[Rfam]
RNA: tRNA
Organism: Alkalibacter saccharofermentans
RNA sequence: GCGAGGGUGGCGGAACUGGCAGACGCGCAUGCUUGAGGGGCAUGUGGAAGAAAUUCCGUGGGGGUUCAAGUCCCCCCCUUCGCA
Number, nucleotide and partner (000 for none) at each position: 001g083002c082003g081004a080005g079006g078007g077008u000009g000010g026011c025012g024013g000014a000015a000016c000017u000018g000019g000020c000021a000022g000023a000024c012025g011026c010027g000028c044029a043030u042031g041032c040033u000034u000035g000036a000037g000038g000039g000040g032041c031042a030043u029044g028045u000046g000047g000048a000049a000050g000051a000052a000053a000054u000055u000056c000057c000058g000059u000060g076061g075062g074063g073064g072065u000066u000067c000068a000069a000070g000071u000072c064073c063074c062075c061076c060077c007078c006079u005080u004081c003082g002083c001084a000